DUF805b RNA: a 38-nucleotide sequence.
[Rfam]
RNA sequence: AUAGCGGGUGCCGAAAAGCUGAGAGAAUAGAGUAGGCG
Numbered sequence: 001a002u003a004g005c006g007g008g009u010g011c012c013g014a015a016a017a018g019c020u021g022a023g024a025g026a027a028u029a030g031a032g033u034a035g036g037c038g
Stems, first nucleotide, its partner, number of pairs: 002021004010037003
It is annotated as a cis-regulatory element. Pairs were carried over by alignment from the consensus structure, which is taken from published work.